[Rfam]
RNA sequence: UCUUCCGCGAGGGAGAAUCUGAAGGAAGCCGACGACGCAACAAGGAAGUGACGAACAGGAACUGGAUAAAAGGCUGCUAUAGCUGGGUAACACGGCCUUAGACGGAGAUGCCCAAUAACUGACCGCAAGCGUAUAGCAGUAGAUCCAGCACUGACCUUGGGAAAGACCUGCAU
Number, nucleotide and partner (000 for none) at each position: 001u016002c015003u014004u013005c012006c011007g000008c000009g000010a000011g006012g005013g004014a003015g002016a001017a000018u000019c000020u000021g000022a000023a000024g000025g000026a000027a000028g173029c000030c000031g000032a169033c000034g000035a000036c165037g000038c000039a000040a000041c159042a158043a157044g156045g155046a000047a152048g151049u150050g149051a000052c000053g000054a000055a000056c000057a000058g000059g000060a000061a000062c148063u147064g146065g145066a144067u143068a000069a000070a000071a000072g000073g140074c139075u138076g000077c136078u135079a134080u133081a132082g130083c129084u000085g113086g112087g111088u110089a000090a000091c000092a000093c104094g103095g000096c000097c000098u000099u000100a000101g000102a000103c094104g093105g000106a000107g000108a000109u000110g088111c087112c086113c085114a000115a000116u000117a000118a000119c000120u000121g000122a000123c000124c000125g000126c000127a000128a000129g083130c082131g000132u081133a080134u079135a078136g077137c000138a075139g074140u073141a000142g000143a067144u066145c065146c064147a063148g062149c050150a049151c048152u047153g000154a000155c045156c044157u043158u042159g041160g000161g000162a000163a000164a000165g036166a000167c000168c000169u032170g000171c000172a000173u028